[Rfam]
A member of the RNA family "Glycine riboswitch aptamer" from Desulfosporosinus youngiae, 76 nucleotides long. NCBI's taxonomy places the organism under Bacteria, Bacillati, Desulfitobacteriaceae, Desulfosporosinus, Desulfosporosinus youngiae. Gene Ontology term of the family: glycine biosynthetic process.

RNA sequence: CUCUGGAGAGUUUCUUUAAAAGAGAACACCAAAGGGGAAGCUGGAAACAGUGAAUCUCUCAGGUUAAAGGACAGAG
Numbered sequence: 001c002u003c004u005g006g007a008g009a010g011u012u013u014c015u016u017u018a019a020a021a022g023a024g025a026a027c028a029c030c031a032a033a034g035g036g037g038a039a040g041c042u043g044g045a046a047a048c049a050g051u052g053a054a055u056c057u058c059u060c061a062g063g064u065u066a067a068a069g070g071a072c073a074g075a076g
Stems, first nucleotide, its partner, number of pairs: 001076005012026004028064003032059001035058003042050001